[Rfam]
This 87-nucleotide sequence from Clostridium thermobutyricum belongs to the Rfam family "Glycine riboswitch aptamer". The organism belongs to Clostridium, within Bacteria. A search with the family's covariance model found it, with a score of 57 bits.
RNA sequence: CCUCUGGAGAGACUCUAUUAAGGAGCACCGAAGGAGCAAGAUACAUUUAUUUAUUUGUAUCCAAACUCUCAGGUAAAAGGACAGGGG
Numbered sequence: 001c002c003u004c005u006g007g008a009g010a011g012a013c014u015c016u017a018u019u020a021a022g023g024a025g026c027a028c029c030g031a032a033g034g035a036g037c038a039a040g041a042u043a044c045a046u047u048u049a050u051u052u053a054u055u056u057g058u059a060u061c062c063a064a065a066c067u068c069u070c071a072g073g074u075a076a077a078a079g080g081a082c083a084g085g086g087g
Stems, first nucleotide, its partner, number of pairs: 001087006013025004027074003030070002034068003040061006